[Rfam]
RNA sequence: UACAUCCUUCGGGGCAGGGUGAAAUUCCCGACCGGCGGUGAUGAGGCCGAAGCCUCUCAGCCCGCGAGCCGUAUAGGCACGAUCCGGUGCGAUUCCGGAGCCGACAGUAUAGUCUGGAUGGGAGAAGGAUGAA
Dot-bracket structure: ..((((((((......(((.......))).[[((((((.....................[[))))....(......).....(((((.......)))))]])).(((....]]))).......))))))))..
Overview:
FMN riboswitch aptamer (RFN element): a 133-nucleotide sequence from Geobacillus thermodenitrificans. Rfam's curators write: The RFN element is a highly conserved domain that is found frequently in the 5'-untranslated regions of prokaryotic mRNAs that encode for flavin mononucleotide (FMN) biosynthesis and transport proteins. The family's consensus secondary structure is taken from published work. The organism belongs to Geobacillus thermodenitrificans, within Bacteria.